[Rfam]
A member of the RNA family "T-box leader" from Candidatus Xianfuyuplasma coldseepsis, 199 nucleotides long. Rfam's curators write: Uncharged tRNA acts as the effector for transcription antitermination of genes in the T-box leader family. The literature on the family includes a 2001 paper in RNA by Winkler et al., "The GA motif: an RNA element common to bacterial antitermination systems, rRNA, and eukaryotic RNAs". Rfam classes the family as a cis-regulatory leader.

RNA sequence: AACAAAACGACGACAAAGACGAGAAUAUCAAGUGUUUAUUUGUAGAGACUUAGUGGCUGGUGAAAACUAAGAUAAACCGAUAUGUAUACCCUUUGGAGUGCCUUGUGAAAAGCACGGCCGGUAAUUCCGUUAUCAUGAAUGAGUGCUAGAGAAAUCUAGAAAUAAGGUGGUACCACGGACUUACAAGUUCGUCCUUUUC
Dot-bracket structure: ......((......((((......(((((..........(........((((((...........)))))))......))))).......))))...)).((.(((.....))).)).(((.....)))................(((((....)))))....((((.......(((((........)))))))))...
Numbered sequence: 001a002a003c004a005a006a007a008c009g010a011c012g013a014c015a016a017a018g019a020c021g022a023g024a025a026u027a028u029c030a031a032g033u034g035u036u037u038a039u040u041u042g043u044a045g046a047g048a049c050u051u052a053g054u055g056g057c058u059g060g061u062g063a064a065a066a067c068u069a070a071g072a073u074a075a076a077c078c079g080a081u082a083u084g085u086a087u088a089c090c091c092u093u094u095g096g097a098g099u100g101c102c103u104u105g106u107g108a109a110a111a112g113c114a115c116g117g118c119c120g121g122u123a124a125u126u127c128c129g130u131u132a133u134c135a136u137g138a139a140u141g142a143g144u145g146c147u148a149g150a151g152a153a154a155u156c157u158a159g160a161a162a163u164a165a166g167g168u169g170g171u172a173c174c175a176c177g178g179a180c181u182u183a184c185a186a187g188u189u190c191g192u193c194c195u196u197u198u199c
Stems, first nucleotide, its partner, number of pairs: 007099002015094004025083005040072001049071006101117002104114003119129003146159005164196004175192005